[Rfam]
RNA sequence: UCAGAAAAAGGCAAACUUGGUGAAAAUCAAGGACGCAAAGCCGAGGGUCUAAGGUGGAAAUAGGAGAAGCUAUGAUGGCCGGGCUGCCUGAA
Dot-bracket structure: (.((......((...((((((....))))))..[))..((((..(((((........................))).])).))))..))..)